The record is a 154-nucleotide sequence, which matches "RT-16 RNA" in Rfam. It is annotated as a small RNA. The sequence is in the family's curated seed alignment.
RNA sequence: UCUUGAUUUACACUGCAGUUUGCAGUGUUUUAUCUGGGCUACACGCUUUUUUACUAGUGCAGUGUAAUGCUUUCAAGCAACCUGUCUUAAAAUACAACUGCAACACCUAAUAUGUGAAGCAGUGGUGAUUAAUUAAGUAAAAAAGCUACAGGGU
Numbered sequence: 001u002c003u004u005g006a007u008u009u010a011c012a013c014u015g016c017a018g019u020u021u022g023c024a025g026u027g028u029u030u031u032a033u034c035u036g037g038g039c040u041a042c043a044c045g046c047u048u049u050u051u052u053a054c055u056a057g058u059g060c061a062g063u064g065u066a067a068u069g070c071u072u073u074c075a076a077g078c079a080a081c082c083u084g085u086c087u088u089a090a091a092a093u094a095c096a097a098c099u100g101c102a103a104c105a106c107c108u109a110a111u112a113u114g115u116g117a118a119g120c121a122g123u124g125g126u127g128a129u130u131a132a133u134u135a136a137g138u139a140a141a142a143a144a145g146c147u148a149c150a151g152g153g154u
Stems, first nucleotide, its partner, number of pairs: 001038003005034003010028007045146010064133002067130001070127001097123005104116003